[Rfam]
RNA sequence: GCGAAUCCCGGCAAUCACCGUGCAUUUUCAUCUACCAGAGGCACUAAUGAAAAUGCCAGUCAUUGACGGAAUUCG
Dot-bracket structure: .......(((.(((..((.(.((((.(((((...............))))).))))).))..))).)))......
Record summary:
Shown here is a 75-nucleotide RNA from Caenorhabditis briggsae, a member of the family "mir-357 microRNA precursor family". Pairs were carried over by alignment from the consensus structure, which was predicted with RNAalifold. For this family Rfam cites "Patterns of flanking sequence conservation and a characteristic upstream motif for microRNA gene identification" (Ohler et al., RNA, 2004). Rfam 15.1 lists 8 matches to the family in 6 species. Rfam's curators put it in the seed alignment.